[Rfam]
RNA sequence: UGCAAAAUAGGAUCAUAUGCGUCAAGUGUUCAGCGAAUGGGGAGUUGUCGCCGAAACGAAAAGUCCGUCUUACGGUAUAUGAUCCGCACCCGUUGCA
Numbered sequence: 001u002g003c004a005a006a007a008u009a010g011g012a013u014c015a016u017a018u019g020c021g022u023c024a025a026g027u028g029u030u031c032a033g034c035g036a037a038u039g040g041g042g043a044g045u046u047g048u049c050g051c052c053g054a055a056a057c058g059a060a061a062a063g064u065c066c067g068u069c070u071u072a073c074g075g076u077a078u079a080u081g082a083u084c085c086g087c088a089c090c091c092g093u094u095g096c097a
Stems, first nucleotide, its partner, number of pairs: 001097005010085010020074003026057002029055003033051004040091003044087001061071003
Description
Rfam assigns this 97-nucleotide sequence from Blautia obeum to the family "THF (Tetrahydrofolate) riboswitch aptamer". Rfam describes the family as follows. Tetrahydrofolate (THF) riboswitch was first reported for Ames et al. as an RNA motif in 5' untranslated (5'-UTR)regions of folate transport and biosynthesis genes in Firmicutes genomes. Rfam links the family to the GO term tetrahydrofolate metabolic process. NCBI's taxonomy places the organism under Bacteria, Bacillati, Clostridia, Lachnospirales, Blautia obeum.